[Rfam]
Source information: The family of this 140-nucleotide RNA from Ochotona princeps is "Small nucleolar RNA SNORA29". Its Rfam clan is "SNORA20 clan". ACA29 is a member of the H/ACA class of snoRNA that guide the sites of modification of uridines to pseudouridines. Pairs were carried over by alignment from the consensus structure, which was predicted with PFOLD. For this family Rfam cites "RNomics: an experimental approach that identifies 201 candidates for novel, small, non-messenger RNAs in mouse" (Huttenhofer et al., EMBO J, 2001). Taxonomically the source falls in Ochotona (Eukaryota, Bilateria, Euteleostomi, Glires). The family has 26 seed sequences and 960 matches in Rfam 15.1.
RNA sequence: UUUCCCAUUUGACUACCACAUUUUCUUCAAUUAAUAGAUUUUAGUGGUAAUGUGUGUGGGAUAGAUUAAAGUUGCCAUGAUCUGAAAGGGGAGGCGUUUUUGGUACCCUCCUUCUAUAUGAAAUGGCUGAACAGAAAAAG
Numbered sequence: 001u002u003u004c005c006c007a008u009u010u011g012a013c014u015a016c017c018a019c020a021u022u023u024u025c026u027u028c029a030a031u032u033a034a035u036a037g038a039u040u041u042u043a044g045u046g047g048u049a050a051u052g053u054g055u056g057u058g059g060g061a062u063a064g065a066u067u068a069a070a071g072u073u074g075c076c077a078u079g080a081u082c083u084g085a086a087a088g089g090g091g092a093g094g095c096g097u098u099u100u101u102g103g104u105a106c107c108c109u110c111c112u113u114c115u116a117u118a119u120g121a122a123a124u125g126g127c128u129g130a131a132c133a134g135a136a137a138a139a140g
Base pairs, nucleotide, nucleotide: 004060005059006058007057016047017046018045019044074127075126076125077124092115093114094113